[Rfam]
RNA sequence: GGAUGUGAGGGCGAUCUGGCUGCGACAUCUGUCACCCCAUUGAUUGCCAGGGUUGAUUCGGCUGAUCUGGCUGGCUAGGCGGGUGUCCCCUUCCUCCCUCACCGCUCCAUGUGCGUCCCUCCCGAAGCUGCGCGCUCGGUCGAAGAGGACGACCUUCCCCGAUAGAGACGUACCGUUCAUCGGUCAAGGGUAUACGGUAGCUGCGCUCCCCUGCUAGAACCUCCAAACAAGCUAUUAAUUUAGUUUUUAUUCAAUAGAGCUCUUACACAACUUCAGACAUUUGCUUAAAUGUUUUAGU
Numbered sequence: 001g002g003a004u005g006u007g008a009g010g011g012c013g014a015u016c017u018g019g020c021u022g023c024g025a026c027a028u029c030u031g032u033c034a035c036c037c038c039a040u041u042g043a044u045u046g047c048c049a050g051g052g053u054u055g056a057u058u059c060g061g062c063u064g065a066u067c068u069g070g071c072u073g074g075c076u077a078g079g080c081g082g083g084u085g086u087c088c089c090c091u092u093c094c095u096c097c098c099u100c101a102c103c104g105c106u107c108c109a110u111g112u113g114c115g116u117c118c119c120u121c122c123c124g125a126a127g128c129u130g131c132g133c134g135c136u137c138g139g140u141c142g143a144a145g146a147g148g149a150c151g152a153c154c155u156u157c158c159c160c161g162a163u164a165g166a167g168a169c170g171u172a173c174c175g176u177u178c179a180u181c182g183g184u185c186a187a188g189g190g191u192a193u194a195c196g197g198u199a200g201c202u203g204c205g206c207u208c209c210c211c212u213g214c215u216a217g218a219a220c221c222u223c224c225a226a227a228c229a230a231g232c233u234a235u236u237a238a239u240u241u242a243g244u245u246u247u248u249a250u251u252c253a254a255u256a257g258a259g260c261u262c263u264u265a266c267a268c269a270a271c272u273u274c275a276g277a278c279a280u281u282u283g284c285u286u287a288a289a290u291g292u293u294u295u296a297g298u
Base pairs, nucleotide, nucleotide: 001108002107003106005102006101007100008099009098010097011096013093014092018090019089024087025086026085027084028083029082030081031080032079033078035074036073037070038069039068042067043066044065045064046062047061048060117170119167120166121165122139123138124137125136127135128134140162141161142160147158148157149156200262206259207258211257212256213255222249230246231245
Dot-bracket structure: (((.(((((((.((...((....((((((((((.(((((..(((((((...........))).)))))))..))...)))))))))).)).))..)))))))...)))........(.(((((((.((.....))))))(((....(((......))).)))..)))..).............................(.....((...(((........(.......((.............))..).....)))))..)....................................
Rfam assigns this 298-nucleotide RNA sequence from Egretta garzetta to the family "7SK RNA". A search with the family's covariance model found it, with a score of 261 bits. Rfam describes the family as follows. 7SK was discovered as an abundant small nuclear RNA in the mid-70s but a possible function has only recently been suggested. Two independent studies have found that 7SK RNA binds the CDK9/cyclin T complex (known as elongation factor P-TEFb). P-TEFb activates transcription by phosphorylating the C-terminal domain of RNA polymerase II. This process is negatively regulated by the 7SK RNP. The secondary structure of 7SK RNA shown here was proposed by Wasserman and Steitz on the basis of chemical modification and enzymatic cleavage experiments. By type it is a non-coding RNA gene.